[Rfam]
RNA sequence: AGUGGUUCUCAACAGUUCAACAGUUCUUUUGAUGAUUGUGAAAUGUUCAGGACCACUUG
Numbered sequence: 001a002g003u004g005g006u007u008c009u010c011a012a013c014a015g016u017u018c019a020a021c022a023g024u025u026c027u028u029u030u031g032a033u034g035a036u037u038g039u040g041a042a043a044u045g046u047u048c049a050g051g052a053c054c055a056c057u058u059g
Stems, first nucleotide, its partner, number of pairs: 001057006008050002011047004016042004

The family of this 59-nucleotide RNA sequence from Ictalurus punctatus is "mir-203 microRNA precursor family".
Lineage of the source: Eukaryota > Eumetazoa > Clupeocephala > Siluroidei > Ictalurus.